The record is a 46-nucleotide sequence from Aliirhizobium cellulosilyticum, which matches "ctRNA" in Rfam. Pairs were carried over by alignment from the consensus structure, which is taken from published work. Rfam classes the family as an antisense RNA. Rfam's curators write: This family represents a group of ctRNAs (or counter-transcribed RNAs) from p42d and related plasmids. ctRNAs are small, highly structured, antisense sequences which are involved in negative regulation. Members of this family are known to bind to the mRNA of repC causing translational repression. The organism belongs to Aliirhizobium, within Bacteria.

RNA sequence: AGAAGGGCUUCCACGACUUGGUCGUUUGGGGGCCUUUUUCUUUUGC
Numbered sequence: 001a002g003a004a005g006g007g008c009u010u011c012c013a014c015g016a017c018u019u020g021g022u023c024g025u026u027u028g029g030g031g032g033c034c035u036u037u038u039u040c041u042u043u044u045g046c
Stems, first nucleotide, its partner, number of pairs: 005035008015026003